[Rfam]
This 137-nucleotide RNA sequence from Dipodomys ordii belongs to the Rfam family "Small nucleolar RNA SNORA48". About the family: The snoRNA ACA 48 has been identified to guide pseudouridylation of the residue U3797 in the 28S rRNA subunit. For this family Rfam cites "Mapping to nucleotide resolution of pseudouridine residues in large subunit ribosomal RNAs from representative eukaryotes, prokaryotes, archaebacteria, mitochondria and chloroplasts" (Ofengand and Bakin, J Mol Biol, 1997). Rfam 15.1 lists 2,109 matches to the family in 150 species. A search with the family's covariance model found it, with a score of 83 bits. Its family is annotated with RNA processing and nucleolus in the Gene Ontology.

RNA sequence: UGUCCCUGUUCUGACCAAAGUGUCAUCCACUUCAUGGUACUCAUCUUAUUAUAUCAACCAGGGGCAAAACAAUCCCAUGUUUAUCCCAACAUGGCUUUUAAGCUGGGCCUAUGCCUCUUCAUGCCUUGGACACACAU
Numbered sequence: 001u002g003u004c005c006c007u008g009u010u011c012u013g014a015c016c017a018a019a020g021u022g023u024c025a026u027c028c029a030c031u032u033c034a035u036g037g038u039a040c041u042c043a044u045c046u047u048a049u050u051a052u053a054u055c056a057a058c059c060a061g062g063g064g065c066a067a068a069a070c071a072a073u074c075c076c077a078u079g080u081u082u083a084u085c086c087c088a089a090c091a092u093g094g095c096u097u098u099u100a101a102g103c104u105g106g107g108c109c110u111a112u113g114c115c116u117c118u119u120c121a122u123g124c125c126u127u128g129g130a131c132a133c134a135c136a137u
Stems, first nucleotide, its partner, number of pairs: 001066008012056003018047003022041001025038003078132006093125003099121001101119001105116001107114002